[Rfam]
RNA sequence: GAAGACCCUGUUGAGCUUGACUCUAGUUUGACAUUGUGAAGAAUCAUGAGAGGUGUAGCAUAGGUGGGAGAUCGUCGUCGUCAGGCGUCGGUCACCAAUGAAAUACCACCACUUUCAUCGAUUCUUUACUUAUUCGGUGAGAAAAAAAUUGAGUUUCGACUCUUUUUUAUUUGUAUUAAGUAAAGUCACCUGGUGACAUUACGACUCUCGCCGAAGACAGUGUCAGGCGGGGAGUUUGACUGGGGCGGUACAUCUGUCAAACUGUAACGCAGGUGUCCUAAGGCUAGCUCAGAGAGGACGGAAACCUCUCGUAGAGCAAAAGGGCAAAAGCUCGCUUGAUCUUGACUUUCAGUACGAGUACAGACCGCGAAAGCGUGGCCUAUCGAUCCUUUUAAUCCAGAUAGUUUCUGGUAAGAGGUGUCAGAAAAGUUACCACAGGGAUAACUGGCUUGUGGCAGCCAAGCGUCCAUAGCGACGUUGCUUUUUGAUCCUUCGAUGUCGGCUCUUCCUAUCAUUGCGAAGCAGAAUUCGCCAAGCGUUGGAUUGUUCACCCACUAAUAGGGAACGUGAGCUGGGUUUAGACCGUCGUGAGACAGGUUA
Numbered sequence: 001g002a003a004g005a006c007c008c009u010g011u012u013g014a015g016c017u018u019g020a021c022u023c024u025a026g027u028u029u030g031a032c033a034u035u036g037u038g039a040a041g042a043a044u045c046a047u048g049a050g051a052g053g054u055g056u057a058g059c060a061u062a063g064g065u066g067g068g069a070g071a072u073c074g075u076c077g078u079c080g081u082c083a084g085g086c087g088u089c090g091g092u093c094a095c096c097a098a099u100g101a102a103a104u105a106c107c108a109c110c111a112c113u114u115u116c117a118u119c120g121a122u123u124c125u126u127u128a129c130u131u132a133u134u135c136g137g138u139g140a141g142a143a144a145a146a147a148a149u150u151g152a153g154u155u156u157c158g159a160c161u162c163u164u165u166u167u168u169a170u171u172u173g174u175a176u177u178a179a180g181u182a183a184a185g186u187c188a189c190c191u192g193g194u195g196a197c198a199u200u201a202c203g204a205c206u207c208u209c210g211c212c213g214a215a216g217a218c219a220g221u222g223u224c225a226g227g228c229g230g231g232g233a234g235u236u237u238g239a240c241u242g243g244g245g246c247g248g249u250a251c252a253u254c255u256g257u258c259a260a261a262c263u264g265u266a267a268c269g270c271a272g273g274u275g276u277c278c279u280a281a282g283g284c285u286a287g288c289u290c291a292g293a294g295a296g297g298a299c300g301g302a303a304a305c306c307u308c309u310c311g312u313a314g315a316g317c318a319a320a321a322g323g324g325c326a327a328a329a330g331c332u333c334g335c336u337u338g339a340u341c342u343u344g345a346c347u348u349u350c351a352g353u354a355c356g357a358g359u360a361c362a363g364a365c366c367g368c369g370a371a372a373g374c375g376u377g378g379c380c381u382a383u384c385g386a387u388c389c390u391u392u393u394a395a396u397c398c399a400g401a402u403a404g405u406u407u408c409u410g411g412u413a414a415g416a417g418g419u420g421u422c423a424g425a426a427a428a429g430u431u432a433c434c435a436c437a438g439g440g441a442u443a444a445c446u447g448g449c450u451u452g453u454g455g456c457a458g459c460c461a462a463g464c465g466u467c468c469a470u471a472g473c474g475a476c477g478u479u480g481c482u483u484u485u486u487g488a489u490c491c492u493u494c495g496a497u498g499u500c501g502g503c504u505c506u507u508c509c510u511a512u513c514a515u516u517g518c519g520a521a522g523c524a525g526a527a528u529u530c531g532c533c534a535a536g537c538g539u540u541g542g543a544u545u546g547u548u549c550a551c552c553c554a555c556u557a558a559u560a561g562g563g564a565a566c567g568u569g570a571g572c573u574g575g576g577u578u579u580a581g582a583c584c585g586u587c588g589u590g591a592g593a594c595a596g597g598u599u600a
Stems, first nucleotide, its partner, number of pairs: 007439004012435002014431005020235004027227007036129010046118007063110005070093005133215005143208001145206001151163001153161001155159001180202004238251001239249003252274006277378002283335002286332003289315002292310006316325002340364003345359004366375003389417006397411004448489001450487001452486001454482006463473002500575001501573004505567001506564005513538001517532005540554003544550001581599004585594003
The family of this 600-nucleotide part of an RNA from Protostrongylus rufescens is "Eukaryotic large subunit ribosomal RNA". The organism belongs to Protostrongylus, within Eukaryota. The sequence is in the family's curated seed alignment.